[Rfam]
RNA sequence: CCAGCCGAAACAUGUCGAAGCAUGACCUCACCUGAGGUAGUCCGCGAGGUAGAGCGACCGAUUGGAUGACCCGCCUCCGAGAGGAGUCGGCCAUCCUGUCGAACUCCGAACUUGCGGACGCCACAGACGGUGGGAGUCCGGUGUGCGGGGUAAGCCUGUGCACCGUAAGGGAGACAACCCAGCGGUAGGUUAAGGUCCCCAAGUGUGGAUUAAGUGCGAUCGAAGGUGGUCCCGAGCCCUAGACAGCCGGGAGGUGAGCUUAGAAGCAGCUACCCUCUAAGAAAAGCGUAACAGCUUACCGGCCGAGGUUCGGGGCGCCCAAAAUGAUCGGGGCUCAAAUCCACCACCGAGACCUACCCGUGUCCAUCACAGGACAAUCGCGUAGGCUGGCACUCCGCUCGGGCGGAAGCACGGGAGAGAUUUCGUGUGGACCGAGUGGUGACGAUAAU
Numbered sequence: 001c002c003a004g005c006c007g008a009a010a011c012a013u014g015u016c017g018a019a020g021c022a023u024g025a026c027c028u029c030a031c032c033u034g035a036g037g038u039a040g041u042c043c044g045c046g047a048g049g050u051a052g053a054g055c056g057a058c059c060g061a062u063u064g065g066a067u068g069a070c071c072c073g074c075c076u077c078c079g080a081g082a083g084g085a086g087u088c089g090g091c092c093a094u095c096c097u098g099u100c101g102a103a104c105u106c107c108g109a110a111c112u113u114g115c116g117g118a119c120g121c122c123a124c125a126g127a128c129g130g131u132g133g134g135a136g137u138c139c140g141g142u143g144u145g146c147g148g149g150g151u152a153a154g155c156c157u158g159u160g161c162a163c164c165g166u167a168a169g170g171g172a173g174a175c176a177a178c179c180c181a182g183c184g185g186u187a188g189g190u191u192a193a194g195g196u197c198c199c200c201a202a203g204u205g206u207g208g209a210u211u212a213a214g215u216g217c218g219a220u221c222g223a224a225g226g227u228g229g230u231c232c233c234g235a236g237c238c239c240u241a242g243a244c245a246g247c248c249g250g251g252a253g254g255u256g257a258g259c260u261u262a263g264a265a266g267c268a269g270c271u272a273c274c275c276u277c278u279a280a281g282a283a284a285a286g287c288g289u290a291a292c293a294g295c296u297u298a299c300c301g302g303c304c305g306a307g308g309u310u311c312g313g314g315g316c317g318c319c320c321a322a323a324a325u326g327a328u329c330g331g332g333g334c335u336c337a338a339a340u341c342c343a344c345c346a347c348c349g350a351g352a353c354c355u356a357c358c359c360g361u362g363u364c365c366a367u368c369a370c371a372g373g374a375c376a377a378u379c380g381c382g383u384a385g386g387c388u389g390g391c392a393c394u395c396c397g398c399u400c401g402g403g404c405g406g407a408a409g410c411a412c413g414g415g416a417g418a419g420a421u422u423u424c425g426u427g428u429g430g431a432c433c434g435a436g437u438g439g440u441g442a443c444g445a446u447a448a449u
Stems, first nucleotide, its partner, number of pairs: 001390006011024005026136001027134006036122003040119008052107001053105002060100003064096005073088001075086004140164009169180003184358007194348003203345001205344006225319003229316010246303005252276003257271003277281001282297001286295002359380002361376005391444001393441001395439008409428008
RNA: Archaeal large subunit ribosomal RNA, nucleotides 906 to 1354
Organism: Haloplanus salinarum